[Rfam]
Rfam assigns this 85-nucleotide RNA from Lepisosteus oculatus to the family "mir-15 microRNA precursor family". The family has 164 seed sequences and 2,045 matches in Rfam 15.1. Taxonomically the source falls in Lepisosteus (Eukaryota, Eumetazoa, Deuterostomia, Teleostomi). The family is grouped with related families in Rfam's "mir-15 clan". The family's consensus secondary structure was predicted with RNAalifold. From the family's description: This family represents the related mir-15a and mir-15b sequences.

RNA sequence: CCUUAAAGUGCUGUAGCAGCACAUCAUGGUUUGCAACACUGUAGUGAAGAUGCGAACCAUUAUUUGCUGCUUUAGAAUUUUAAGG
Numbered sequence: 001c002c003u004u005a006a007a008g009u010g011c012u013g014u015a016g017c018a019g020c021a022c023a024u025c026a027u028g029g030u031u032u033g034c035a036a037c038a039c040u041g042u043a044g045u046g047a048a049g050a051u052g053c054g055a056a057c058c059a060u061u062a063u064u065u066g067c068u069g070c071u072u073u074a075g076a077a078u079u080u081u082a083a084g085g
Stems, first nucleotide, its partner, number of pairs: 001085006013073001015071007023063002026060010